The family of this 82-nucleotide RNA sequence from Zostera marina is "Small nucleolar RNA snoR60".
A reference for the family is Barneche et al. (2000), "Fibrillarin genes encode both a conserved nucleolar protein and a novel small nucleolar RNA involved in ribosomal RNA methylation in Arabidopsis thaliana", J Biol Chem.
The family has 10 seed sequences and 1,133 matches in Rfam 15.1.
Clan: SNORD101 clan.
Rfam classes the family as a C/D-box small nucleolar RNA.
The base pairs follow the family's consensus structure, which was predicted with PFOLD.
The source organism's lineage runs through Eukaryota, Embryophyta, Spermatophyta, Alismatales and Zostera.
RNA sequence: UAGCAUGGGAUGAUUUCUUGGAUUCCCCUUCAGGACAGAUGAGUUUCAUCUGUAUGAUGCACGUCUCCAAGAUUCUGAUGCU
Numbered sequence: 001u002a003g004c005a006u007g008g009g010a011u012g013a014u015u016u017c018u019u020g021g022a023u024u025c026c027c028c029u030u031c032a033g034g035a036c037a038g039a040u041g042a043g044u045u046u047c048a049u050c051u052g053u054a055u056g057a058u059g060c061a062c063g064u065c066u067c068c069a070a071g072a073u074u075c076u077g078a079u080g081c082u
Stems, first nucleotide, its partner, number of pairs: 002082004